Ribosomal protein L20 leader: a 130-nucleotide sequence from Oceanobacillus iheyensis.
[Rfam]
RNA sequence: UAAGACAAGUAGAAGCACCCGCUUCUCACCUGAUUGACACCGAUUAUGGUAGUUGACUGGUUCCAACCUUUUAUUUAAAUGUAUUUGGAGAUGUGUGGGUGCGUGUAUGUACCGACACUUUUUUAAUUGC
Numbered sequence: 001u002a003a004g005a006c007a008a009g010u011a012g013a014a015g016c017a018c019c020c021g022c023u024u025c026u027c028a029c030c031u032g033a034u035u036g037a038c039a040c041c042g043a044u045u046a047u048g049g050u051a052g053u054u055g056a057c058u059g060g061u062u063c064c065a066a067c068c069u070u071u072u073a074u075u076u077a078a079a080u081g082u083a084u085u086u087g088g089a090g091a092u093g094u095g096u097g098g099g100u101g102c103g104u105g106u107a108u109g110u111a112c113c114g115a116c117a118c119u120u121u122u123u124u125a126a127u128u129g130c
Stems, first nucleotide, its partner, number of pairs: 011026006028061003036054003039050002094117003098113006
By type it is a cis-regulatory leader. Gene Ontology term of the family: regulation of gene expression. Rfam's curators put it in the seed alignment. This family is a putative r-protein leader autoregulatory structure found in B. subtilis and other low-GC Gram-positive bacteria. It is located in the 5' untranslated regions of mRNAs encoding initiation factor 3 followed by ribosomal proteins L35 and L20 (infC-rpmI-rplT). A Rho-independent transcription terminator structure that is probably involved in regulation is included at the 3' end.